[Rfam]
RNA sequence: GUCUAAACUGUCGGGCUGAGACAGA
Numbered sequence: 001g002u003c004u005a006a007a008c009u010g011u012c013g014g015g016c017u018g019a020g021a022c023a024g025a
Stems, first nucleotide, its partner, number of pairs: 001016004008024005
Dot-bracket structure: [[[[...(((((]]]]...))))).
Overview
Pseudoknot of upstream pseudoknot domain (UPD) of the 3'UTR: a 25-nucleotide RNA from Carnegiea gigantea. Rfam classes the family as a cis-regulatory element. The organism belongs to Carnegiea, within Eukaryota. The base pairs follow the family's consensus structure, which is taken from published work. A reference for the family is Koenig et al. (1999), "Molecular characterization of a new furovirus mainly infecting rye", Arch Virol.